The record is a 549-nucleotide part of an RNA from Plasmodium yoelii, which matches "Eukaryotic large subunit ribosomal RNA" in Rfam. The source organism's lineage runs through Eukaryota, Sar, Haemosporida, Plasmodiidae and Plasmodium yoelii. Its Rfam clan is "LSU clan". Rfam links the family to the GO terms ribosome and structural constituent of ribosome.

RNA sequence: GAAGACCCUGUUGAGCUUUACUCUAGUCUGGCUUUGUGAAACGACUUAAGAGGUGUAGCAUAAGUGGGAGCAGAGAUUGAAAUAUAUUUUUGCGACAGUGAAAUACCACUACUUUUAAAGUUGUUUUACUUAUCUAUUUAUAGGGAAAUAUAUUUACGUUUGCCAGCUUGCUGGUCGUGCGUAUCUGAUAUUAUUUGAGUUUGAUGAGAUCCGCAAGGAUCCCAUUUCUCUCCCGCUUCUAUGGAGACAUAGCCAGGUGGGGAGUUUGACUGGGGCGGUACAUCUGUUAAACAAUAACGCAGAUGUCCAAAGACAAGCUCAAAGAGAACAGAAAUCUCUUGUAGACUAAAAGGGGAAAAGCUUGUUUGAUUUCUAUUUUCAGAAAAAGUAGAAAACGUGAAAGCGUGGCCUAUCGAUCCUUUAUAUUUGCAAAAUGACGGGACUUGCUCCCUACUGUGCAUAUAGAGGUGUCUGAAAAGUUACCACAGGGAUAACUGGCUUGUGGCUGCCAAGCGCUCCUAGCGACGUAGCUUUUUGAUCCUUCGAUGU
Number, nucleotide and partner (000 for none) at each position: 001g000002a000003a000004g000005a000006c000007c489008c488009u487010g486011u000012u485013g484014a481015g480016c479017u478018u477019u000020a265021c264022u263023c262024u000025a000026g000027u257028c256029u255030g254031g253032c252033u251034u000035u000036g129037u128038g127039a126040a125041a124042c123043g122044a121045c120046u118047u117048a116049a115050g114051a113052g112053g000054u000055g000056u000057a000058g000059c000060a000061u000062a000063a110064g109065u108066g107067g106068g000069a000070g093071c092072a091073g090074a089075g088076a087077u086078u000079g000080a000081a000082a000083u000084a000085u000086a077087u076088u075089u074090u073091u072092g071093c070094g000095a000096c000097a000098g000099u000100g000101a000102a000103a000104u000105a000106c067107c066108a065109c064110u063111a000112c052113u051114u050115u049116u048117a047118a046119a000120g045121u044122u043123g042124u041125u040126u039127u038128a037129c036130u000131u000132a000133u245134c244135u243136a242137u241138u000139u000140a000141u000142a000143g238144g237145g236146a000147a000148a000149u000150a000151u190152a189153u188154u187155u000156a000157c000158g000159u000160u000161u000162g000163c000164c000165a000166g000167c000168u000169u000170g000171c000172u000173g000174g000175u000176c000177g000178u000179g000180c000181g000182u000183a000184u000185c000186u000187g154188a153189u152190a151191u000192u000193a000194u000195u000196u000197g000198a000199g000200u000201u000202u000203g000204a000205u000206g232207a231208g230209a229210u000211c000212c000213g000214c000215a000216a000217g000218g000219a000220u000221c000222c000223c000224a000225u000226u000227u000228c000229u209230c208231u207232c206233c000234c000235g000236c145237u144238u143239c000240u000241a137242u136243g135244g134245a133246g000247a000248c000249a000250u000251a033252g032253c031254c030255a029256g028257g027258u000259g000260g000261g000262g023263a022264g021265u020266u000267u000268g281269a279270c278271u277272g000273g000274g000275g000276c000277g271278g270279u269280a000281c268282a304283u303284c302285u301286g300287u299288u000289a000290a000291a000292c000293a000294a000295u000296a000297a000298c000299g287300c286301a285302g284303a283304u282305g000306u000307c408308c407309a000310a000311a000312g000313a365314c364315a363316a362317g361318c360319u345320c344321a000322a340323a339324g338325a337326g336327a335328a000329c000330a000331g000332a000333a000334a000335u327336c326337u325338c324339u323340u322341g000342u000343a000344g320345a319346c355347u354348a000349a000350a000351a000352g000353g000354g347355g346356a000357a000358a000359a000360g318361c317362u316363u315364g314365u313366u000367u000368g000369a000370u394371u393372u392373c391374u390375a389376u388377u387378u386379u000380c000381a000382g000383a000384a000385a000386a378387a377388g376389u375390a374391g373392a372393a371394a370395a000396c405397g404398u403399g000400a000401a000402a000403g398404c397405g396406u000407g308408g307409c000410c000411u000412a000413u000414c000415g000416a000417u000418c000419c467420u466421u465422u464423a463424u462425a000426u000427u000428u460429g459430c458431a000432a000433a000434a000435u000436g000437a000438c000439g000440g000441g000442a000443c000444u000445u000446g000447c000448u000449c000450c000451c000452u000453a000454c000455u000456g000457u000458g430459c429460a428461u000462a424463u423464a422465g421466a420467g419468g000469u000470g000471u000472c000473u000474g000475a000476a000477a018478a017479g016480u015481u014482a000483c000484c013485a012486c010487a009488g008489g007490g000491a000492u000493a000494a000495c000496u000497g000498g539499c000500u537501u000502g536503u000504g532505g531506c530507u529508g528509c527510c000511a000512a000513g523514c522515g000516c000517u000518c000519c000520u000521a000522g514523c513524g000525a000526c000527g509528u508529a507530g506531c505532u504533u000534u000535u000536u502537g500538a000539u498540c000541c000542u000543u000544c000545g000546a000547u000548g000549u000